[Rfam]
RNA sequence: GUUAUGGUGGGGGCACCAAUACCUCAUGGUGAUUCCGUCUUCGCAAGAAGGGGAUAGAUCGACGCGUCAAGAAAUCGUUUCAUUUGCCACGCCUCCAGUAGGCAAUAUGAUUGUUGCUUGCGUACAG
Numbered sequence: 001g002u003u004a005u006g007g008u009g010g011g012g013g014c015a016c017c018a019a020u021a022c023c024u025c026a027u028g029g030u031g032a033u034u035c036c037g038u039c040u041u042c043g044c045a046a047g048a049a050g051g052g053g054a055u056a057g058a059u060c061g062a063c064g065c066g067u068c069a070a071g072a073a074a075u076c077g078u079u080u081c082a083u084u085u086g087c088c089a090c091g092c093c094u095c096c097a098g099u100a101g102g103c104a105a106u107a108u109g110a111u112u113g114u115u116g117c118u119u120g121c122g123u124a125c126a127g
Stems, first nucleotide, its partner, number of pairs: 006040002010036002014031005066123002069119003074111004084105005092098001
The record is a 127-nucleotide RNA sequence from Brachypodium distachyon, which matches "Small nucleolar RNA snoR111" in Rfam. The family has 6 seed sequences and 533 matches in Rfam 15.1. On this family, see Marker et al., Curr Biol 2002: "Experimental RNomics: identification of 140 candidates for small non-messenger RNAs in the plant Arabidopsis thaliana".